c-di-GMP-I-GGC riboswitch aptamer: an 87-nucleotide RNA from Bacillus sp. B-jedd.
RNA sequence: UGAGAAAAAGGCAAACCUGUUGAAAAGCAGGGACGCAAAGCCAAGGGCCCUUCCUUUUAAAAAAAGCAGGGCAGCCGGCUGCCGAAA
Numbered sequence: 001u002g003a004g005a006a007a008a009a010g011g012c013a014a015a016c017c018u019g020u021u022g023a024a025a026a027g028c029a030g031g032g033a034c035g036c037a038a039a040g041c042c043a044a045g046g047g048c049c050c051u052u053c054c055u056u057u058u059a060a061a062a063a064a065a066g067c068a069g070g071g072c073a074g075c076c077g078g079c080u081g082c083c084g085a086a087a
Base pairs, nucleotide, nucleotide: 001087004083011036012035016031017030018029019028020027021026034074039080040079041078042077045076046075047072048071049070050069051068
It scores 71 bits against the family's covariance model. On this family, see Smith et al., Nat Struct Mol Biol 2009: "Structural basis of ligand binding by a c-di-GMP riboswitch".